[Rfam]
MIR4371 microRNA precursor family: a 158-nucleotide RNA sequence from Glycine max. The match comes from Rfam's covariance-model search (132 bits).
Nucleotides: 158
Base pairs, nucleotide, nucleotide: 001156002155004153005152006151008149009148010147011146012145014143015142017140018139019138020137021136022135023134024133025132026131027130028129029128030127031126032125033124034123035122036121037120038119039118040117041116042115043114045112046111048109050107051106052105054103055102056101057100058099071086072085073084074083
Number, partner (000 for none) and nucleotide at each position: 001156u002155c003000c004153u005152u006151a007000u008149g009148u010147g011146a012145u013000a014143a015142u016000a017140u018139g019138a020137c021136a022135g023134a024133c025132g026131g027130a028129g029128u030127g031126u032125c033124a034123u035122a036121u037120c038119a039118u040117c041116a042115u043114g044000c045112c046111u047000u048109g049000c050107c051106a052105c053000g054103g055102g056101c057100a058099c059000c060000u061000c062000a063000u064000u065000g066000u067000c068000a069000c070000a071086u072085c073084a074083u075000c076000a077000c078000c079000u080000c081000u082000a083074a084073u085072g086071a087000c088000a089000u090000g091000a092000c093000a094000a095000u096000g097000a098000u099058g100057u101056g102055u103054c104000a105052g106051u107050g108000a109048u110000u111046g112045g113000a114043c115042g116041u117040g118039g119038u120037g121036a122035u123034a124033u125032g126031a127030c128029a129028u130027u131026u132025u133024g134023u135022u136021u137020g138019u139018c140017a141000c142015g143014u144000c145012a146011u147010c148009a149008c150000c151006u152005a153004a154000c155002g156001a157000a158000a
Lineage of the source: Eukaryota > Magnoliopsida > Pentapetalae > rosids > Glycine subgen. Soja.